[Rfam]
transfer-messenger RNA: a 378-nucleotide RNA from Parasphaerochaeta coccoides. It is annotated as a non-coding RNA gene. Lineage of the source: Bacteria > Spirochaetota > Sphaerochaetaceae > Parasphaerochaeta > Parasphaerochaeta coccoides.
RNA sequence: GGGGGUGUUUCGGUUUCGACCGGCGGUAUGUCAGGUCAGUAGUUGCAAGCGGAGCGCCAACUCCUAAAACUAGCACACGCUUUACCUGCCAAAAAAGAAGACGAAAACGUCUCUUAUGACGCAGAAUAUGCUUUCGCUGCCUAAGGUAGUGUAAGUAUACAGGUUCGCCAGGUGCAGCCCAUAACCUGCGGAUACCUGUAACAACAGGGGCUUACCAGCACGAAUGCCAGUGGCGUGCAGGGACACCAAAGCUGGAUACGGCGUAUCCACGUUUGCCGAUAAACCACGGUACGCCGGAACCACAGAGCAUCGGCUAAGCUUGUAGAUGCUGCUGGGUGGCCCGUCGGGACGAGGGUUCGAAUCCCUCCACCUCCAUCA
Numbered sequence: 001g002g003g004g005g006u007g008u009u010u011c012g013g014u015u016u017c018g019a020c021c022g023g024c025g026g027u028a029u030g031u032c033a034g035g036u037c038a039g040u041a042g043u044u045g046c047a048a049g050c051g052g053a054g055c056g057c058c059a060a061c062u063c064c065u066a067a068a069a070c071u072a073g074c075a076c077a078c079g080c081u082u083u084a085c086c087u088g089c090c091a092a093a094a095a096a097g098a099a100g101a102c103g104a105a106a107a108c109g110u111c112u113c114u115u116a117u118g119a120c121g122c123a124g125a126a127u128a129u130g131c132u133u134u135c136g137c138u139g140c141c142u143a144a145g146g147u148a149g150u151g152u153a154a155g156u157a158u159a160c161a162g163g164u165u166c167g168c169c170a171g172g173u174g175c176a177g178c179c180c181a182u183a184a185c186c187u188g189c190g191g192a193u194a195c196c197u198g199u200a201a202c203a204a205c206a207g208g209g210g211c212u213u214a215c216c217a218g219c220a221c222g223a224a225u226g227c228c229a230g231u232g233g234c235g236u237g238c239a240g241g242g243a244c245a246c247c248a249a250a251g252c253u254g255g256a257u258a259c260g261g262c263g264u265a266u267c268c269a270c271g272u273u274u275g276c277c278g279a280u281a282a283a284c285c286a287c288g289g290u291a292c293g294c295c296g297g298a299a300c301c302a303c304a305g306a307g308c309a310u311c312g313g314c315u316a317a318g319c320u321u322g323u324a325g326a327u328g329c330u331g332c333u334g335g336g337u338g339g340c341c342c343g344u345c346g347g348g349a350c351g352a353g354g355g356u357u358c359g360a361a362u363c364c365c366u367c368c369a370c371c372u373c374c375a376u377c378a
Base pairs, nucleotide, nucleotide: 001374002373003372004371005370006369007368020347021346022345023344024343025342026341034337036335037334038333039332040331041330042329043328046322047321048320049319050318051064052063053062054061056074057073059071132154133153135151136150137149138148139147140146158200159199160198161197162196163195165191166190167189168188170187171186172185173184177211178210179209180208182206215241216240218238219237220236221235222234227255228254229253230252259296260295261294262293263292264291265290266289267288271284272283273282275314276313277312278311280307351367352366353365354364355363